Shown here is a 139-nucleotide sequence from Urocolius indicus, a member of the family "Small nucleolar RNA SNORA46". Gene Ontology terms of the family: nucleolus and RNA processing. The source organism's lineage runs through Eukaryota, Bilateria, Chordata, Saurischia and Urocolius.
[Rfam]
RNA sequence: AGCACUAUUUUUAAACCUGUUGGUGGAAUUUCCUGACCGCCAUGGGUUACGCUGUAGUGCAAAAGAACCUCCUGGCUCUUCAGACCAUAGCUGGCCUGGCUCUGUUUGGCUCAUGCUCCUCUGAAGCUAAGGAACACAA
Numbered sequence: 001a002g003c004a005c006u007a008u009u010u011u012u013a014a015a016c017c018u019g020u021u022g023g024u025g026g027a028a029u030u031u032c033c034u035g036a037c038c039g040c041c042a043u044g045g046g047u048u049a050c051g052c053u054g055u056a057g058u059g060c061a062a063a064a065g066a067a068c069c070u071c072c073u074g075g076c077u078c079u080u081c082a083g084a085c086c087a088u089a090g091c092u093g094g095c096c097u098g099g100c101u102c103u104g105u106u107u108g109g110c111u112c113a114u115g116c117u118c119c120u121c122u123g124a125a126g127c128u129a130a131g132g133a134a135c136a137c138a139a
Base pairs, nucleotide, nucleotide: 002060003059004058005057006056007055008054014048015047016046017045021042022041023040024039025038026037070133071132072131073130074128075127076126077125079123082120086115087114089111090110091109093107094106